Rfam assigns this 81-nucleotide sequence from Eleutherodactylus coqui to the family "mir-26 microRNA precursor family".
A search with the family's covariance model found it, with a score of 70 bits.
Rfam links the family to the GO terms miRNA-mediated post-transcriptional gene silencing and RISC complex.
The source organism's lineage runs through Eukaryota, Gnathostomata, Dipnotetrapodomorpha, Neobatrachia and Eleutherodactylus.
For this family Rfam cites "Identification of novel genes coding for small expressed RNAs" (Lagos-Quintana et al., Science, 2001).
RNA sequence: CCUCUGCUAGUUUCAAGUAAUCCAGGAUAGGCUGUGCUAUCAUCUUUCAGCCUAUUCUUGAUUACUUGUGGUCAGCACCGG
Numbered sequence: 001c002c003u004c005u006g007c008u009a010g011u012u013u014c015a016a017g018u019a020a021u022c023c024a025g026g027a028u029a030g031g032c033u034g035u036g037c038u039a040u041c042a043u044c045u046u047u048c049a050g051c052c053u054a055u056u057c058u059u060g061a062u063u064a065c066u067u068g069u070g071g072u073c074a075g076c077a078c079c080g081g
Stems, first nucleotide, its partner, number of pairs: 002080001005077001007075002010072003014068009024058010